[Rfam]
RNA: RAGATH-18 RNA
Organism: Epulopiscium sp. Nele67-Bin004
RNA sequence: CCUUUGGAGAACUAUAUCAAAUUAAAGUAGCGAGAAAGUGGCAAAAUAAGGUUCGGUGAAAAAGGAA
Numbered sequence: 001c002c003u004u005u006g007g008a009g010a011a012c013u014a015u016a017u018c019a020a021a022u023u024a025a026a027g028u029a030g031c032g033a034g035a036a037a038g039u040g041g042c043a044a045a046a047u048a049a050g051g052u053u054c055g056g057u058g059a060a061a062a063a064g065g066a067a
Stems, first nucleotide, its partner, number of pairs: 001065005009054005022049003030042002